[Rfam]
RNA sequence: AGAUUAUCUCUAAAGUUGAUCUAUUGGAAUGACUUAUCUAAGUCAAAGUAAUUCAAGUAAUUCAGGUGUAGUGGAAC
Numbered sequence: 001a002g003a004u005u006a007u008c009u010c011u012a013a014a015g016u017u018g019a020u021c022u023a024u025u026g027g028a029a030u031g032a033c034u035u036a037u038c039u040a041a042g043u044c045a046a047a048g049u050a051a052u053u054c055a056a057g058u059a060a061u062u063c064a065g066g067u068g069u070a071g072u073g074g075a076a077c
Stems, first nucleotide, its partner, number of pairs: 007074002010071003014067001016065004022059004027054004032049004